Plastid-atpF group II-D1 intron: a 53-nucleotide RNA from Handroanthus impetiginosus. A reference for the family is Richter et al. (2023), "Retrograde signaling in plants: A critical review focusing on the GUN pathway and beyond", Plant Commun. Gene Ontology term of the family: Group II intron splicing. From the family's description: Plastid atpF is a non-coding RNA (ncRNA) recognised in plastids. It has been reported in the intron group II-D1 region of ATP synthase (atpF) genes.

RNA sequence: AAUAUUUUUAUCGAUAUAGAACUCUCAUCUCGAUAAAAUGAUUUGAUAUAAUU
Numbered sequence: 001a002a003u004a005u006u007u008u009u010a011u012c013g014a015u016a017u018a019g020a021a022c023u024c025u026c027a028u029c030u031c032g033a034u035a036a037a038a039u040g041a042u043u044u045g046a047u048a049u050a051a052u053u
Stems, first nucleotide, its partner, number of pairs: 011033004016028002
Dot-bracket structure: ..........((((.((.........)).))))....................